TPP riboswitch aptamer (THI element): a 117-nucleotide RNA from Actinomadura sp. KC345.
RNA sequence: AAACGUCUCCGCGGGAGCUCGGGCCACAGCCGGGCUGAGAGGGCGGCCUUCCAGGCGUCGCCGACCGCAUGAACCUGUCCGGGUAAUGCCGGCGUAGGGAGUGUGUUCCGUGGCGUC
Numbered sequence: 001a002a003a004c005g006u007c008u009c010c011g012c013g014g015g016a017g018c019u020c021g022g023g024c025c026a027c028a029g030c031c032g033g034g035c036u037g038a039g040a041g042g043g044c045g046g047c048c049u050u051c052c053a054g055g056c057g058u059c060g061c062c063g064a065c066c067g068c069a070u071g072a073a074c075c076u077g078u079c080c081g082g083g084u085a086a087u088g089c090c091g092g093c094g095u096a097g098g099g100a101g102u103g104u105g106u107u108c109c110g111u112g113g114c115g116u117c
Base pairs, nucleotide, nucleotide: 007105009103011068012067013066014065017035018034019033020032021031042062043061044060045059046058074098075097076096077095079092080091081090082089
Dot-bracket structure: ......(.(.((((..(((((.........)))))......(((((...........)))))..)))).....((((.((((......))))..))))....).)............
A search with the family's covariance model found it, with a score of 55 bits. Vitamin B(1) in its active form thiamin pyrophosphate (TPP) is an essential coenzyme that is synthesised by coupling of pyrimidine and thiazole moieties in bacteria. Rfam 15.1 lists 16,130 matches to the family in 8,693 species.